[Rfam]
RNA sequence: GGCGUAAAGGGCGCGUAGGCGGUCUGCUAAGCGUGUGGUGAAAGCUCGGGGCUCAACCCCGAGUCUGCCAUGCGAACUGGUGGACUAGAGCACUGUAGAGGCAGGUGGAAUUCCGGGUGUAGCGGUGGAAUGCGUAGAGAUCCGGAAGAACACCAGUGGCGAAGGCGGCCUGCUGGGCAGUAGCUGACGCUGAGGCGCGAUAGCGUGGGGAGCAAACAGGAUUAGAUACCCUGGUAGUCCACGCCGUAAACGAUGGGGACUAGGUGCUUGGGGGAGCGACCCCUCGAGUGCCGGCGCUAACGCAUUAAGUCCCCCGCCUGGGGAGUACGACCGCAAGGUUGAAACUCAAAGGAAU
Numbered sequence: 001g002g003c004g005u006a007a008a009g010g011g012c013g014c015g016u017a018g019g020c021g022g023u024c025u026g027c028u029a030a031g032c033g034u035g036u037g038g039u040g041a042a043a044g045c046u047c048g049g050g051g052c053u054c055a056a057c058c059c060c061g062a063g064u065c066u067g068c069c070a071u072g073c074g075a076a077c078u079g080g081u082g083g084a085c086u087a088g089a090g091c092a093c094u095g096u097a098g099a100g101g102c103a104g105g106u107g108g109a110a111u112u113c114c115g116g117g118u119g120u121a122g123c124g125g126u127g128g129a130a131u132g133c134g135u136a137g138a139g140a141u142c143c144g145g146a147a148g149a150a151c152a153c154c155a156g157u158g159g160c161g162a163a164g165g166c167g168g169c170c171u172g173c174u175g176g177g178c179a180g181u182a183g184c185u186g187a188c189g190c191u192g193a194g195g196c197g198c199g200a201u202a203g204c205g206u207g208g209g210g211a212g213c214a215a216a217c218a219g220g221a222u223u224a225g226a227u228a229c230c231c232u233g234g235u236a237g238u239c240c241a242c243g244c245c246g247u248a249a250a251c252g253a254u255g256g257g258g259a260c261u262a263g264g265u266g267c268u269u270g271g272g273g274g275a276g277c278g279a280c281c282c283c284u285c286g287a288g289u290g291c292c293g294g295c296g297c298u299a300a301c302g303c304a305u306u307a308a309g310u311c312c313c314c315c316g317c318c319u320g321g322g323g324a325g326u327a328c329g330a331c332c333g334c335a336a337g338g339u340u341g342a343a344a345c346u347c348a349a350a351g352g353a354a355u
Base pairs, nucleotide, nucleotide: 001318002317003316009315011198012197013196014195016192018191019190020189022085023084024083025082026081027080028079030078031077032074033073034072035071036070037069038068039067040066045063046062047061048060049059050058051057089185090184091183092181093180094179095178096177100174101173102172103171104170105169106168107151111147112146113145114144115143116142117141118140122133123132124131159166160165203244204243205242206241207240208239212238213237217233218232219231220230255314256313257312258311259310260309263292264291265290266289267288268287269286270285271284272283273282274281296303297302320347321346322345329340330339331338332337
RNA: Bacterial small subunit ribosomal RNA, nucleotides 544 to 898